[Rfam]
RNA sequence: AGAACCUUUAAUUAAGUCCAGAGAGGCUUGCAAGGUUGCUUAAAUAGGAUACGUGUAUAAUCUAUGAAUCUACACGUCUACCUCUUUGCAACCAUGCAAAGAGGUUUUUUAUU
Numbered sequence: 001a002g003a004a005c006c007u008u009u010a011a012u013u014a015a016g017u018c019c020a021g022a023g024a025g026g027c028u029u030g031c032a033a034g035g036u037u038g039c040u041u042a043a044a045u046a047g048g049a050u051a052c053g054u055g056u057a058u059a060a061u062c063u064a065u066g067a068a069u070c071u072a073c074a075c076g077u078c079u080a081c082c083u084c085u086u087u088g089c090a091a092c093c094a095u096g097c098a099a100a101g102a103g104g105u106u107u108u109u110u111a112u113u
Base pairs, nucleotide, nucleotide: 003037004036005035006034007033008032013030014029015028016027017026018025047071048070049069050068052066053065054064055062080105081104082103083102084101085100086099087098088097089096090095
Annotation
Rfam assigns this 113-nucleotide RNA from Aquibacillus koreensis to the family "PyrR binding site". The base pairs follow the family's consensus structure, which is taken from published work.